[Rfam]
The record is a 77-nucleotide RNA from Ventosimonas gracilis, which matches "SAH (S-adenosyl-L-homocysteine) riboswitch aptamer" in Rfam.
A search with the family's covariance model found it, with a score of 54 bits.

RNA sequence: UCCCCUAAGGAGCGCUGCAGCAGGUUGUCCUGUCAGGCUUGGGCGGUAAGGUUUCCUAUAAACGGCGCUCAUUGAUU
Numbered sequence: 001u002c003c004c005c006u007a008a009g010g011a012g013c014g015c016u017g018c019a020g021c022a023g024g025u026u027g028u029c030c031u032g033u034c035a036g037g038c039u040u041g042g043g044c045g046g047u048a049a050g051g052u053u054u055c056c057u058a059u060a061a062a063c064g065g066c067g068c069u070c071a072u073u074g075a076u077u
Base pairs, nucleotide, nucleotide: 002045004043005042006041007040008039021032022031023030024029
Gene Ontology terms of the family: regulation of gene expression and S-adenosylhomocysteine metabolic process. The base pairs follow the family's consensus structure, which is taken from published work.